[Rfam]
RNA sequence: GGUUUGUAGGCAGUGUAGUUAGCUGAUUGUUUUAUACCACCUGCAAUCACUAACCAUACUGCCAACAGCCU
Numbered sequence: 001g002g003u004u005u006g007u008a009g010g011c012a013g014u015g016u017a018g019u020u021a022g023c024u025g026a027u028u029g030u031u032u033u034a035u036a037c038c039a040c041c042u043g044c045a046a047u048c049a050c051u052a053a054c055c056a057u058a059c060u061g062c063c064a065a066c067a068g069c070c071u
Stems, first nucleotide, its partner, number of pairs: 002070001004068003009063002012060005018054005024049007
Notes: mir-34 microRNA precursor family: a 71-nucleotide sequence from Denticeps clupeoides. On this family, see Lim et al., Science 2003: "Vertebrate microRNA genes". Rfam links the family to the GO terms RISC complex and miRNA-mediated post-transcriptional gene silencing. The match comes from Rfam's covariance-model search (64 bits). About the family: Human mir-34a was discovered computationally and later experimentally verified. The mature sequence is excised from the 5' arm of the hairpin. The source organism's lineage runs through Eukaryota, Gnathostomata, Actinopterygii, Neopterygii and Denticeps. Its Rfam clan is "mir-34 clan".